[Rfam]
RNA sequence: GAUCGCGGGGAUCACCACCGGUCGGCGAGUUUCGCCCACCGGUGCAUUUUGC
Numbered sequence: 001g002a003u004c005g006c007g008g009g010g011a012u013c014a015c016c017a018c019c020g021g022u023c024g025g026c027g028a029g030u031u032u033c034g035c036c037c038a039c040c041g042g043u044g045c046a047u048u049u050u051g052c
Stems, first nucleotide, its partner, number of pairs: 016044007025035004
RNA: ffh sRNA